[Rfam]
t44 RNA: an 88-nucleotide sequence from Gilvimarinus sp. DA14. A search with the family's covariance model found it, with a score of 71 bits. The literature on the family includes a 2002 paper in Nucleic Acids Res by Tjaden et al., "Transcriptome analysis of Escherichia coli using high-density oligonucleotide probe arrays". The family's consensus secondary structure was predicted with LocARNA. The source organism's lineage runs through Bacteria, Pseudomonadati, Gammaproteobacteria, Cellvibrionales and Gilvimarinus.

RNA sequence: AUUAACACUUUUAAAUGUCACACAUAUACCGACACGUUCAGUCUGGGUGCCCGUAAGGGUUGGCUGGCGGGGUGUAUGGAGGCCUAAC
Numbered sequence: 001a002u003u004a005a006c007a008c009u010u011u012u013a014a015a016u017g018u019c020a021c022a023c024a025u026a027u028a029c030c031g032a033c034a035c036g037u038u039c040a041g042u043c044u045g046g047g048u049g050c051c052c053g054u055a056a057g058g059g060u061u062g063g064c065u066g067g068c069g070g071g072g073u074g075u076a077u078g079g080a081g082g083c084c085u086a087a088c
Stems, first nucleotide, its partner, number of pairs: 023078008035069003039066005049060004